[Rfam]
RNA sequence: AUCAAGCAUCAAGAGAAGAACUAAUACUCAAUGGUUCUCGCCAACCUGCUAAACCUGGUAAGGUGGUCGAGUAAAAGAUGUGGCUUCGCAGCAAUUAAGAGGUCAAU
Numbered sequence: 001a002u003c004a005a006g007c008a009u010c011a012a013g014a015g016a017a018g019a020a021c022u023a024a025u026a027c028u029c030a031a032u033g034g035u036u037c038u039c040g041c042c043a044a045c046c047u048g049c050u051a052a053a054c055c056u057g058g059u060a061a062g063g064u065g066g067u068c069g070a071g072u073a074a075a076a077g078a079u080g081u082g083g084c085u086u087c088g089c090a091g092c093a094a095u096u097a098a099g100a101g102g103u104c105a106a107u
Base pairs, nucleotide, nucleotide: 006081007080008079009078010077015039017038018037019036020035021034022033023032040067041066042065045063046062047061048059049058050057052103054101056099083092084091085090
The family of this 107-nucleotide sequence is "SAM-I/IV (S-adenosyl methionine) riboswitch aptamer".
Clan: SAM clan.
Rfam's curators put it in the seed alignment.